A member of the RNA family "Group II catalytic intron D1-D4-3" from Oleispira antarctica, 175 nucleotides long.
NCBI's taxonomy places the organism under Bacteria, Pseudomonadati, Pseudomonadota, Oceanospirillales, Oleispira antarctica.
Pairs were carried over by alignment from the consensus structure.
A search with the family's covariance model found it, with a score of 106 bits.

[Rfam]
RNA sequence: GUUGUCGCGAGGCAGGGUCUGGAGGAGGUUCAAGACGAAAUCGCGGAACGAUGAACAAGAACCCGAUCUGAGGUGUGACGUAUCCAUGGCCAGUGGGCACGUGACCACCAAGCCCUCCAUCUGCAAUUGGGAUACGUUUUAUAAAUUGGGCGUUUACGCGAGGAAAGUUAAAUGU
Numbered sequence: 001g002u003u004g005u006c007g008c009g010a011g012g013c014a015g016g017g018u019c020u021g022g023a024g025g026a027g028g029u030u031c032a033a034g035a036c037g038a039a040a041u042c043g044c045g046g047a048a049c050g051a052u053g054a055a056c057a058a059g060a061a062c063c064c065g066a067u068c069u070g071a072g073g074u075g076u077g078a079c080g081u082a083u084c085c086a087u088g089g090c091c092a093g094u095g096g097g098c099a100c101g102u103g104a105c106c107a108c109c110a111a112g113c114c115c116u117c118c119a120u121c122u123g124c125a126a127u128u129g130g131g132a133u134a135c136g137u138u139u140u141a142u143a144a145a146u147u148g149g150g151c152g153u154u155u156a157c158g159c160g161a162g163g164a165a166a167g168u169u170a171a172a173u174g175u
Stems, first nucleotide, its partner, number of pairs: 002015005028175002035168002041161005046155005062150006073142003077138007088114003093108004
Dot-bracket structure: .(((((....)))))............((.....((....((((((((((...........((((((.....(((.(((((((....(((..((((........))))...))).................))))))).)))..))))))))))).))))).....)).....))